[Rfam]
RNA sequence: GGUAUCCAAGGACGAAUUUUCGAUACCAUCUCAGGACACCUUUGACACAGUGCCAUGACGCUGUGAAUGAGAAGGCAAUUCUUUUCUGAUAGUACU
Numbered sequence: 001g002g003u004a005u006c007c008a009a010g011g012a013c014g015a016a017u018u019u020u021c022g023a024u025a026c027c028a029u030c031u032c033a034g035g036a037c038a039c040c041u042u043u044g045a046c047a048c049a050g051u052g053c054c055a056u057g058a059c060g061c062u063g064u065g066a067a068u069g070a071g072a073a074g075g076c077a078a079u080u081c082u083u084u085u086c087u088g089a090u091a092g093u094a095c096u
Base pairs, nucleotide, nucleotide: 001096002095003094004093005092043049044048
A member of the RNA family "Small nucleolar RNA snoR31/Z110/Z27" from Paspalum vaginatum, 96 nucleotides long. Rfam describes the family as follows. This family contains several related snoRNAs including R31, Z27 and Z110. The family's consensus secondary structure was predicted with PFOLD. Rfam 15.1 lists 571 matches to the family in 198 species. A reference for the family is Barneche et al. (2001), "Identification of 66 box C/D snoRNAs in Arabidopsis thaliana: extensive gene duplications generated multiple isoforms predicting new ribosomal RNA 2'-O-methylation sites", J Mol Biol. A search with the family's covariance model found it, with a score of 51 bits. The family's RNA type in Rfam is C/D-box small nucleolar RNA.